[Rfam]
RNA sequence: UGCCGGGGUUCCAUCCUCCGGGGUCACUUUUGAGGCACUUAUUACAUCAUUGCCAGACGUGCGGUUCGGUCUUCCGAUCCAAUCAACGGCAUCACACGCGGGUAAGCGUCCGGUCACCGUUUGUCCAACGGUCCCGUCGCCCAACCGUCGCCAUAUGCAAGCGCUUGCCUU
Number, nucleotide and partner (000 for none) at each position: 001u023002g000003c021004c020005g019006g018007g017008g016009u000010u000011c000012c000013a000014u000015c000016c008017u007018c006019c005020g004021g003022g000023g001024u000025c000026a000027c000028u000029u000030u000031u000032g000033a000034g054035g053036c052037a051038c000039u000040u000041a000042u000043u000044a000045c000046a000047u000048c000049a000050u000051u037052g036053c035054c034055a000056g000057a000058c000059g000060u000061g000062c000063g000064g000065u000066u000067c000068g000069g000070u000071c000072u000073u000074c000075c000076g000077a000078u000079c000080c000081a000082a000083u000084c000085a000086a000087c000088g142089g141090c000091a000092u000093c000094a000095c000096a000097c000098g000099c000100g000101g000102g000103u000104a000105a000106g000107c000108g000109u000110c000111c000112g000113g000114u000115c000116a000117c000118c000119g000120u000121u000122u000123g000124u000125c000126c000127a000128a000129c000130g000131g000132u000133c000134c000135c000136g000137u000138c000139g000140c000141c089142c088143a000144a000145c000146c000147g000148u000149c000150g164151c163152c000153a000154u160155a000156u000157g000158c000159a000160a154161g000162c000163g151164c150165u000166u000167g000168c000169c000170u000171u000